[Rfam]
Nucleotides: 137
Base pairs, nucleotide, nucleotide: 036059037058038057039056040055041054042053043052117130118129119128120127
Number, partner (000 for none) and nucleotide at each position: 001000c002000c003000c004000g005000c006000a007000a008000c009000c010000a011000a012000u013000u014000c015000a016000c017000a018000a019000a020000g021000g022000g023000u024000c025000c026000a027000g028000u029000g030000u031000g032000u033000u034000u035000u036059a037058a038057g039056c040055c041054c042053c043052g044000c045000c046000g047000c048000u049000g050000a051000a052043c053042g054041g055040g056039g057038c058037u059036u060000u061000u062000u063000a064000c065000u066000a067000u068000g069000u070000g071000a072000c073000c074000u075000g076000u077000g078000c079000u080000g081000c082000a083000c084000c085000g086000a087000a088000g089000u090000g091000a092000g093000c094000u095000u096000c097000g098000g099000c100000u101000g102000a103000g104000c105000g106000g107000c108000c109000a110000u111000a112000a113000c114000a115000c116000u117130g118129g119128g120127c121000g122000a123000u124000u125000a126000c127120g128119c129118c130117c131000u132000u133000u134000u135000u136000u137000u
Gammaprotebacteria rimP leader: a 137-nucleotide RNA from Pseudidiomarina taiwanensis. Lineage of the source: Bacteria > Pseudomonadati > Gammaproteobacteria > Idiomarinaceae > Pseudidiomarina. The family's consensus secondary structure is taken from published work. Its family is annotated with regulation of gene expression in the Gene Ontology. The literature on the family includes a 2010 paper in Genome Biol by Naville and Gautheret, "Premature terminator analysis sheds light on a hidden world of bacterial transcriptional attenuation". It scores 55 bits against the family's covariance model.